[Rfam]
RNA sequence: CGGGUCCGUUCGCAGACAUUUGGCAGAGGCGGGGGACCCACGUUUACCGGGCUCCCUCCAGAGCCCUUGGGGUUAAGCCGCACUCCACCACGGAGCGAUUUUCCGAGGUGGAACGCGGCCGGGUGACUCCCAUCCGAACCCGACAGCUUACCUCGCAGGCAUUGGGAGAGGCUAC
Numbered sequence: 001c002g003g004g005u006c007c008g009u010u011c012g013c014a015g016a017c018a019u020u021u022g023g024c025a026g027a028g029g030c031g032g033g034g035g036a037c038c039c040a041c042g043u044u045u046a047c048c049g050g051g052c053u054c055c056c057u058c059c060a061g062a063g064c065c066c067u068u069g070g071g072g073u074u075a076a077g078c079c080g081c082a083c084u085c086c087a088c089c090a091c092g093g094a095g096c097g098a099u100u101u102u103c104c105g106a107g108g109u110g111g112a113a114c115g116c117g118g119c120c121g122g123g124u125g126a127c128u129c130c131c132a133u134c135c136g137a138a139c140c141c142g143a144c145a146g147c148u149u150a151c152c153u154c155g156c157a158g159g160c161a162u163u164g165g166g167a168g169a170g171g172c173u174a175c
Stems, first nucleotide, its partner, number of pairs: 001158001005028001007026001029156006039069002070141003078118004121135004
A member of the RNA family "c-di-AMP riboswitch aptamer (ydaO/yuaA leader)" from Crystallibacter crystallopoietes, 175 nucleotides long. NCBI's taxonomy places the organism under Bacteria, Bacillati, Actinomycetota, Micrococcaceae, Crystallibacter.